[Rfam]
RNA sequence: UGCAGGAUUAGUUACAAUAUAUCUGGGCAGUGCUGUGUUGUCGUUCCCCCUGCUAGAAAGUAAGUUGAUUCCUUCUAUUCCUGGCUGUUCUCUAUAGCAGACAGGAACGCUUGGUCUCAAACA
Numbered sequence: 001u002g003c004a005g006g007a008u009u010a011g012u013u014a015c016a017a018u019a020u021a022u023c024u025g026g027g028c029a030g031u032g033c034u035g036u037g038u039u040g041u042c043g044u045u046c047c048c049c050c051u052g053c054u055a056g057a058a059a060g061u062a063a064g065u066u067g068a069u070u071c072c073u074u075c076u077a078u079u080c081c082u083g084g085c086u087g088u089u090c091u092c093u094a095u096a097g098c099a100g101a102c103a104g105g106a107a108c109g110c111u112u113g114g115u116c117u118c119a120a121a122c123a
Stems, first nucleotide, its partner, number of pairs: 002053005014041008023032001080105004085100004
RNA: Small nucleolar RNA SNORA63